Record summary
Rfam assigns this 195-nucleotide RNA from Pantoea agglomerans to the family "Lysine riboswitch aptamer". Rfam links the family to the GO term lysine biosynthetic process. The family's consensus secondary structure is taken from published work. Riboswitches are metabolite binding domains within certain messenger RNAs that serve as precision sensors for their corresponding targets.
[Rfam]
RNA sequence: CAAGCCAGAAGAGGCGCGUCGCCCAGGCAGUGUGUUUGGAGGAACCGUAUCCGGUGAAAACACAUGAUGGGGAGCGACGCCGAGGUGGGUCAGCACGCGGUGUGCUGCCUGUCGGCUACAGGGGCUGAAUCCUCUGGGUUGUCACCAGAAACGUCUGCAGUCGACGUUUCGCAAGGUGGGGGCGCUUCUGGGUGA
Numbered sequence: 001c002a003a004g005c006c007a008g009a010a011g012a013g014g015c016g017c018g019u020c021g022c023c024c025a026g027g028c029a030g031u032g033u034g035u036u037u038g039g040a041g042g043a044a045c046c047g048u049a050u051c052c053g054g055u056g057a058a059a060a061c062a063c064a065u066g067a068u069g070g071g072g073a074g075c076g077a078c079g080c081c082g083a084g085g086u087g088g089g090u091c092a093g094c095a096c097g098c099g100g101u102g103u104g105c106u107g108c109c110u111g112u113c114g115g116c117u118a119c120a121g122g123g124g125c126u127g128a129a130u131c132c133u134c135u136g137g138g139u140u141g142u143c144a145c146c147a148g149a150a151a152c153g154u155c156u157g158c159a160g161u162c163g164a165c166g167u168u169u170c171g172c173a174a175g176g177u178g179g180g181g182g183c184g185c186u187u188c189u190g191g192g193u194g195a
Stems, first nucleotide, its partner, number of pairs: 006190006016080007024072001030065008084113007092106004114140004119136006142179005